Rfam assigns this 94-nucleotide RNA sequence from Streptococcus infantis to the family "Cia-dependent small RNA csRNA1".
[Rfam]
RNA sequence: CAUAAGUUAAGAGAAACUUAACUUAAACUCCUAAAACUUUUUCAUAAUAAUCUCCCUAUAAAAAAAUUAAGUCGCCCAAUUAGGCGACUUUUUU
Numbered sequence: 001c002a003u004a005a006g007u008u009a010a011g012a013g014a015a016a017c018u019u020a021a022c023u024u025a026a027a028c029u030c031c032u033a034a035a036a037c038u039u040u041u042u043c044a045u046a047a048u049a050a051u052c053u054c055c056c057u058a059u060a061a062a063a064a065a066a067u068u069a070a071g072u073c074g075c076c077c078a079a080u081u082a083g084g085c086g087a088c089u090u091u092u093u094u
Stems, first nucleotide, its partner, number of pairs: 004024008069090008